Overview
This 258-nucleotide RNA from Halalkalibacter nanhaiisediminis belongs to the Rfam family "BsrG". It is annotated as a small RNA. Rfam describes the family as follows. bsrE, bsrG and bsrH pair through intermolecular interactions with antisense sRNAs. It scores 120 bits against the family's covariance model. The base pairs follow the family's consensus structure, which was predicted with WAR. NCBI's taxonomy places the organism under Bacteria, Bacillati, Bacillota, Bacilli, Halalkalibacter. Rfam 15.1 lists 614 matches to the family in 343 species.
[Rfam]
RNA sequence: CAAUUUAAUAGGAUACGGAAAUUCAAGGGUGGUUGGCACAUCCCCAAAGAGAAAGGGGGUGAUGCCAGUGACGGUGUUUCAAGCUUUGGUGCUAAUGAUUGCAUUUGCAACAUUGAUUGUAGCUGUACUGUCAUUUAACCAAAAGAAAUAAUCCACCCUUGAGCUUACGAGGCUAGGUGGAUUAUUUUUAUCGAACCAGCUGACUUCCCUAGAGGGAACCUGUUCUAUUGCUUGACCGUUGGUGUUGCAGCACCGACG
Number, nucleotide and partner (000 for none) at each position: 001c230002a229003a228004u227005u000006u000007a224008a223009u222010a000011g220012g000013a000014u000015a000016c202017g201018g200019a000020a000021a000022u163023u162024c161025a160026a159027g158028g157029g156030u000031g153032g152033u151034u150035g000036g000037c000038a000039c061040a060041u000042c059043c058044c057045c056046a000047a000048a000049g000050a000051g000052a000053a000054a000055g000056g045057g044058g043059g042060u040061g039062a000063u000064g000065c000066c000067a000068g000069u000070g132071a131072c130073g129074g128075u127076g126077u000078u000079u000080c000081a000082a000083g000084c097085u000086u000087u000088g000089g000090u000091g000092c000093u000094a000095a000096u000097g084098a000099u000100u000101g000102c000103a000104u000105u000106u000107g124108c000109a000110a000111c000112a000113u000114u000115g000116a000117u000118u000119g000120u000121a000122g000123c000124u107125g000126u076127a075128c074129u073130g072131u071132c070133a000134u000135u000136u000137a000138a000139c000140c000141a000142a000143a000144a000145g000146a000147a000148a000149u000150a034151a033152u032153c031154c000155a000156c029157c028158c027159u026160u025161g024162a023163g022164c000165u000166u000167a000168c000169g000170a000171g000172g000173c000174u000175a187176g000177g000178u000179g000180g000181a000182u000183u000184a000185u000186u000187u175188u000189u000190a000191u000192c000193g000194a000195a000196c000197c000198a000199g000200c018201u017202g016203a000204c000205u218206u217207c216208c215209c000210u000211a000212g000213a000214g000215g208216g207217a206218a205219c000220c011221u000222g009223u008224u007225c000226u000227a004228u003229u002230g001231c000232u000233u000234g000235a000236c000237c258238g257239u256240u255241g254242g253243u252244g251245u250246u000247g000248c000249a000250g245251c244252a243253c242254c241255g240256a239257c238258g237